[Rfam]
RNA sequence: GCGCAAGUGGUUUAGUGGUAAAAUCCAACGUUGCCAUCGUUGGGCCCCCGGUUCGAUUCCGGGCUUGCGCA
Numbered sequence: 001g002c003g004c005a006a007g008u009g010g011u012u013u014a015g016u017g018g019u020a021a022a023a024u025c026c027a028a029c030g031u032u033g034c035c036a037u038c039g040u041u042g043g044g045c046c047c048c049c050g051g052u053u054c055g056a057u058u059c060c061g062g063g064c065u066u067g068c069g070c071a
Stems, first nucleotide, its partner, number of pairs: 001070007010024004026042005047063005
RNA: tRNA
Organism: Saccharomyces cerevisiae